Small nucleolar RNA snoR14: an 80-nucleotide sequence from Papaver somniferum.
Nucleotides: 080
Base pairs, nucleotide, nucleotide: 001080002079003078004077
Number, partner (000 for none) and nucleotide at each position: 001080g002079c003078g004077a005000a006000a007000u008000g009000a010000u011000g012000a013000a014000a015000a016000a017000a018000a019000u020000u021000c022000a023000u024000u025000g026000c027000u028000c029000a030000a031000u032000c033000c034000a035000c036000u037000g038000a039000a040000u041000u042000u043000u044000g045000u046000g047000a048000u049000g050000u051000u052000a053000c054000u055000c056000u057000u058000g059000a060000a061000u062000c063000u064000c065000g066000a067000c068000a069000g070000a071000u072000u073000c074000u075000g076000a077004u078003c079002g080001c

Its Rfam clan is "SNORD110 clan". A search with the family's covariance model found it, with a score of 66 bits. Rfam links the family to the GO terms RNA processing and nucleolus.